The family of this 112-nucleotide RNA sequence from Rummeliibacillus stabekisii is "SAM riboswitch aptamer (S box leader)". A search with the family's covariance model found it, with a score of 86 bits. The source organism's lineage runs through Bacteria, Bacillota, Bacilli, Caryophanales and Rummeliibacillus. Pairs were carried over by alignment from the consensus structure, which is taken from published work.
[Rfam]
RNA sequence: CCUUUAUCAAGAGUGGCGGAGGGAAAGGCCCUGCGAUGCCCGGCAACCAGUAAGUUAUCUUACAUGGUGCUAAUUCCUACAGAUUCUUUAUUGCGGAUCUGACAGAUAAGGG
Numbered sequence: 001c002c003u004u005u006a007u008c009a010a011g012a013g014u015g016g017c018g019g020a021g022g023g024a025a026a027g028g029c030c031c032u033g034c035g036a037u038g039c040c041c042g043g044c045a046a047c048c049a050g051u052a053a054g055u056u057a058u059c060u061u062a063c064a065u066g067g068u069g070c071u072a073a074u075u076c077c078u079a080c081a082g083a084u085u086c087u088u089u090a091u092u093g094c095g096g097a098u099c100u101g102a103c104a105g106a107u108a109a110g111g112g
Stems, first nucleotide, its partner, number of pairs: 001112008013041001015040003021031003026078003042071004047067002050063004075104001080101006